Rfam assigns this 57-nucleotide RNA sequence from Salmo trutta to the family "U7 small nuclear RNA". A search with the family's covariance model found it, with a score of 34 bits.

[Rfam]
RNA sequence: UGGAACUUGUACUCUUUUUAUAUUUCUCCAGUAGGUUUCCUCAAAGAGAAAGCCCCC
Numbered sequence: 001u002g003g004a005a006c007u008u009g010u011a012c013u014c015u016u017u018u019u020a021u022a023u024u025u026c027u028c029c030a031g032u033a034g035g036u037u038u039c040c041u042c043a044a045a046g047a048g049a050a051a052g053c054c055c056c057c
Base pairs, nucleotide, nucleotide: 034054035053036052037051038050040048041047042046
The source organism's lineage runs through Eukaryota, Opisthokonta, Bilateria, Salmoninae and Salmo.
About the family: Animal histone pre-mRNAs are spliced by a different mechanism than nuclear pre-mRNAs and self-splicing introns. This processing involves the U7 snRNP, which contains only one RNA species: U7. The 5' end of U7 RNA is thought to base-pair to a conserved spacer element downstream of the cleavage site in histone pre-mRNA. This family contains a number of annotated U7 pseudogenes.